The record is an 84-nucleotide sequence from Yoonia rosea, which matches "Singlet oxygen resistance RNA X" in Rfam. Rfam classes the family as a small RNA. A reference for the family is Berghoff et al. (2009), "Photooxidative stress-induced and abundant small RNAs in Rhodobacter sphaeroides", Mol Microbiol. SorX (RSs2461)like SorY is a singlet oxygen induced sRNA that counteracts oxidative stress by targeting mRNA for a transporter in Rhodobacter. Rfam links the family to the GO term response to photooxidative stress.
[Rfam]
RNA sequence: AUCUCUCGAAGGCGACGAUGCGAUAGCGCUCAUCACCUUCACCUCCCUGUUGGACUUCGCCGGGCCUUGUGCCCGGCAUUUUUU
Numbered sequence: 001a002u003c004u005c006u007c008g009a010a011g012g013c014g015a016c017g018a019u020g021c022g023a024u025a026g027c028g029c030u031c032a033u034c035a036c037c038u039u040c041a042c043c044u045c046c047c048u049g050u051u052g053g054a055c056u057u058c059g060c061c062g063g064g065c066c067u068u069g070u071g072c073c074c075g076g077c078a079u080u081u082u083u084u
Base pairs, nucleotide, nucleotide: 008040009039010038011037012036014034059077060076061075062074063073064072065071